[Rfam]
RNA sequence: GACGAAUCUAUUGCCCGCCGAGCCUGCGCAUUACCGUGCGCGGGGGAGGGCGGCGAAAGCGAAAGCU
Numbered sequence: 001g002a003c004g005a006a007u008c009u010a011u012u013g014c015c016c017g018c019c020g021a022g023c024c025u026g027c028g029c030a031u032u033a034c035c036g037u038g039c040g041c042g043g044g045g046g047a048g049g050g051c052g053g054c055g056a057a058a059g060c061g062a063a064a065g066c067u
Stems, first nucleotide, its partner, number of pairs: 011056003015053005023044009
RNA: ilvH RNA